[Rfam]
RNA sequence: UUGGCUCCGGUUCACGUCCGCACCCCGCGAGGCGACCCGGGCC
Numbered sequence: 001u002u003g004g005c006u007c008c009g010g011u012u013c014a015c016g017u018c019c020g021c022a023c024c025c026c027g028c029g030a031g032g033c034g035a036c037c038c039g040g041g042c043c
Base pairs, nucleotide, nucleotide: 003043004042005041007040008039009038010037015034016033017032018031019029020028021027
The family of this 43-nucleotide sequence from Nocardioides sp. UNC345MFTsu5.1 is "L31-Actinobacteria ribosomal protein leader". The family's RNA type in Rfam is cis-regulatory leader.